The family of this 102-nucleotide RNA sequence from Lactuca saligna is "Plastid-psbA-1 3UTR RNA".
[Rfam]
RNA sequence: UUGUUAUUUCUAAAGAAAACUAUGUAAGGCAAAUACUACUAAAUAAAAAAAAGGAGCAAUAGCUUCCCUCUUGUUUUAUCAAGAGGGCGUUAUUGCUCCUUU
Dot-bracket structure: .................................................(((((((((((((..((.(((((........)))))))..)))))))))))))

Pairs were carried over by alignment from the consensus structure, which was predicted with LocARNA. For this family Rfam cites "Retrograde signaling in plants: A critical review focusing on the GUN pathway and beyond" (Richter et al., Plant Commun, 2023). Clan: Plastid-psbA 3UTR RNA clan. From the family's description: Plastid psbA-1 is a non-coding RNA (ncRNA) present in plastids. Taxonomically the source falls in Lactuca (Eukaryota, Streptophyta, asterids, Lactucinae).